RNA sequence: ACUGUGCUUUUCUUGGGGUUGUGCUGCAGUCCAGUGAGUACAUAGUGAGGGCAAUACUGCCAAUGCCUACACAACAUGUAUGCAUCAACUGGAGCUUGGCUUUACCUUGGUGCAAUUUUUGGUAAA
Numbered sequence: 001a002c003u004g005u006g007c008u009u010u011u012c013u014u015g016g017g018g019u020u021g022u023g024c025u026g027c028a029g030u031c032c033a034g035u036g037a038g039u040a041c042a043u044a045g046u047g048a049g050g051g052c053a054a055u056a057c058u059g060c061c062a063a064u065g066c067c068u069a070c071a072c073a074a075c076a077u078g079u080a081u082g083c084a085u086c087a088a089c090u091g092g093a094g095c096u097u098g099g100c101u102u103u104a105c106c107u108u109g110g111u112g113c114a115a116u117u118u119u120u121g122g123u124a125a126a
Stems, first nucleotide, its partner, number of pairs: 007017003021060003026055001029052004038046002082113006090104006
The record is a 126-nucleotide RNA from Cebus imitator, which matches "U4atac minor spliceosomal RNA" in Rfam. The source organism's lineage runs through Eukaryota, Sarcopterygii, Eutheria, Haplorrhini and Cebus. Rfam's curators write: U4atac is an essential component of the minor U12-type spliceosome complex which is required for removal of the rarer class of eukaryotic introns (AT-AC, U12-type). By type it is a spliceosomal small nuclear RNA. The base pairs follow the family's consensus structure, which is taken from published work. The match comes from Rfam's covariance-model search (76 bits). Clan: U4 clan.